[Rfam]
RNA sequence: CUAUGACUUGCAAUAGGAGUCAUGGCAAAGGAG
Numbered sequence: 001c002u003a004u005g006a007c008u009u010g011c012a013a014u015a016g017g018a019g020u021c022a023u024g025g026c027a028a029a030g031g032a033g
Stems, first nucleotide, its partner, number of pairs: 001025008
Description:
Shown here is a 33-nucleotide RNA, a member of the family "L31-Firmicutes ribosomal protein leader". Rfam classes the family as a cis-regulatory leader. A reference for the family is Eckert and Weinberg (2020), "Discovery of 20 novel ribosomal leader candidates in bacteria and archaea", BMC Microbiol.